[Rfam]
This 139-nucleotide sequence from Oryctolagus cuniculus belongs to the Rfam family "Small Cajal body specific RNA 11".
About the family: scaRNAs are a specific class of small nuclear RNAs which localise to the Cajal bodies and guide the modification of RNA polymerase II transcribed spliceosomal RNAs U1, U2, U4, U5 and U12. ACA57 belongs to the H/ACA box class of guide RNAs as it has the predicted hairpin-hinge-hairpin-tail structure, conserved H/ACA-box motifs and is found associated with GAR1. ACA57 is predicted to guide the pseudouridylation of the U5 spliceosomal RNA at position U43.
The match comes from Rfam's covariance-model search (84 bits).
Pairs were carried over by alignment from the consensus structure, which was predicted with RNAalifold.
The family's RNA type in Rfam is small Cajal body RNA.
The organism belongs to Oryctolagus, within Eukaryota.

RNA sequence: AAUUUUUUUUUUAAAUUACCAUUGUACACUUGUGCUCAAUUCUCACAGGGGAGUCUGGCAGGACACACAGCACUCUCCCUCUCCAUUUAGGAGGUCGUCCUAAGAAUGGGGUUGGUUCUUAAAGACAUGAGAGGAAAAA
Number, nucleotide and partner (000 for none) at each position: 001a000002a000003u000004u063005u062006u061007u060008u000009u000010u058011u057012u000013a000014a000015a000016u000017u000018a000019c000020c000021a000022u000023u000024g054025u053026a000027c000028a000029c049030u048031u047032g046033u045034g000035c000036u000037c000038a000039a000040u000041u000042c000043u000044c000045a033046c032047a031048g030049g029050g000051g000052a000053g025054u024055c000056u000057g011058g010059c000060a007061g006062g005063a004064c000065a000066c000067a000068c000069a000070g000071c000072a000073c000074u000075c000076u000077c000078c134079c133080u132081c131082u130083c129084c000085a000086u125087u124088u123089a000090g000091g120092a119093g118094g117095u115096c114097g112098u111099c110100c109101u108102a107103a000104g000105a000106a000107u102108g101109g100110g099111g098112u097113u000114g096115g095116u000117u094118c093119u092120u091121a000122a000123a088124g087125a086126c000127a000128u000129g083130a082131g081132a080133g079134g078135a000136a000137a000138a000139a000